[Rfam]
RNA: Metazoan signal recognition particle RNA
RNA sequence: GCCGGGAGCAGUGGCGUGCCCCUGUAGUCCAAGCAUCUGGGAGGCUGAGACUGGCGGAUCGUUUGAGUUCAGGGGUUCGGGGCUGCAGUGAGCUAUGACGAGCGGAUGUCCACACUAAGAUCGGUGUCGAUAUGGUGCUCCUGGGGGAGCCCGAGAUCACCAGGUCGCCUGAGGAGGGGUGCACCGGCCCAGGUCGGAAACGGAGCAGGUCAAAGCCCCCGUAUCGAUCAGUAGUUGGAUAGCACCUGUGAAUAGACGCUGGAGUUCGGCCUGAGCAAUACAGCGAGACUCAGUCUUUU
Number, nucleotide and partner (000 for none) at each position: 001g045002c044003c043004g023005g022006g021007a000008g019009c018010a017011g000012u000013g000014g000015c000016g000017u010018g009019c008020c000021c006022c005023u004024g000025u000026a000027g000028u042029c041030c040031a000032a000033g000034c000035a000036u000037c000038u000039g000040g030041g029042a028043g003044g002045c001046u000047g297048a296049g295050a294051c293052u292053g291054g290055c000056g000057g000058a000059u286060c285061g284062u283063u282064u000065g000066a000067g276068u275069u274070c273071a272072g271073g270074g000075g000076u000077u000078c269079g000080g267081g266082g265083c264084u263085g000086c261087a260088g259089u258090g257091a000092g000093c255094u254095a253096u252097g000098a000099c000100g000101a000102g249103c248104g247105g246106a000107u244108g243109u242110c238111c237112a000113c000114a235115c234116u233117a232118a000119g229120a228121u227122c226123g225124g224125u223126g222127u221128c167129g166130a165131u164132a000133u162134g161135g160136u159137g158138c000139u156140c155141c000142u153143g152144g151145g150146g000147g000148a000149g000150c145151c144152c143153g142154a000155g140156a139157u000158c137159a136160c135161c134162a133163g000164g131165u130166c129167g128168c174169c173170u000171g000172a000173g169174g168175a000176g219177g218178g217179g216180u215181g000182c000183a000184c000185c000186g211187g210188c209189c208190c000191a000192g000193g000194u203195c202196g201197g000198a000199a000200a000201c196202g195203g194204a000205g000206c000207a000208g189209g188210u187211c186212a000213a000214a000215g180216c179217c178218c177219c176220c000221g127222u126223a125224u124225c123226g122227a121228u120229c119230a000231g000232u117233a116234g115235u114236u000237g111238g110239a000240u000241a000242g109243c108244a107245c000246c105247u104248g103249u102250g000251a000252a096253u095254a094255g093256a000257c090258g089259c088260u087261g086262g000263a084264g083265u082266u081267c080268g000269g078270c073271c072272u071273g070274a069275g068276c067277a000278a000279u000280a000281c000282a063283g062284c061285g060286a059287g000288a000289c000290u054291c053292a052293g051294u050295c049296u048297u047298u000299u000